[Rfam]
RNA: DUF805b RNA
RNA sequence: UUCGCGGAAGCCGAAAAGCGCAAAGAGUAGGCG
Numbered sequence: 001u002u003c004g005c006g007g008a009a010g011c012c013g014a015a016a017a018g019c020g021c022a023a024a025g026a027g028u029a030g031g032c033g
Stems, first nucleotide, its partner, number of pairs: 003020003010032003